Record summary: The family of this 270-nucleotide RNA sequence from Ictidomys tridecemlineatus is "Small Cajal body specific RNA 6". Rfam classes the family as a small Cajal body RNA. A reference for the family is Darzacq et al. (2002), "Cajal body-specific small nuclear RNAs: a novel class of 2'-O-methylation and pseudouridylation guide RNAs", EMBO J. Its family is annotated with RNA processing and nucleolus in the Gene Ontology. Rfam's curators write: U88 is small Cajal body specific RNA (scaRNA). scaRNAs are a novel class of small nuclear RNAs which localise to the Cajal bodies. It is one of the family's seed sequences.
[Rfam]
RNA sequence: GGUCGAUGAUGAGUAGUAAAAGGUCUGACUGCCCAGGUCCCCUCCCAGCAUCCUGAAUGUCCCCAGCUGCCUCAAUCCCAUCAGGCUCCAGUGGUGCCACAAUGGGCCAGAGAGCAGCUGACAGGCAGGGAUGGCUUGAGUCUGUGUUCCCUGGUGAGCCAAGGGAAGACACGGUGGUUGCAUCCAACAGCUUAGCCACGAAGGGCAAGGGACUUUUGGUUGGGAGAGCUGGUAUCUGUGGCUGUGAUCUGACGUUUUCAAGCUGAGACC
Numbered sequence: 001g002g003u004c005g006a007u008g009a010u011g012a013g014u015a016g017u018a019a020a021a022g023g024u025c026u027g028a029c030u031g032c033c034c035a036g037g038u039c040c041c042c043u044c045c046c047a048g049c050a051u052c053c054u055g056a057a058u059g060u061c062c063c064c065a066g067c068u069g070c071c072u073c074a075a076u077c078c079c080a081u082c083a084g085g086c087u088c089c090a091g092u093g094g095u096g097c098c099a100c101a102a103u104g105g106g107c108c109a110g111a112g113a114g115c116a117g118c119u120g121a122c123a124g125g126c127a128g129g130g131a132u133g134g135c136u137u138g139a140g141u142c143u144g145u146g147u148u149c150c151c152u153g154g155u156g157a158g159c160c161a162a163g164g165g166a167a168g169a170c171a172c173g174g175u176g177g178u179u180g181c182a183u184c185c186a187a188c189a190g191c192u193u194a195g196c197c198a199c200g201a202a203g204g205g206c207a208a209g210g211g212a213c214u215u216u217u218g219g220u221u222g223g224g225a226g227a228g229c230u231g232g233u234a235u236c237u238g239u240g241g242c243u244g245u246g247a248u249c250u251g252a253c254g255u256u257u258u259c260a261a262g263c264u265g266a267g268a269c270c
Stems, first nucleotide, its partner, number of pairs: 001270004034251006042226008061205003064120007077106005085098001086096001128185001130184004135180001143171003147167006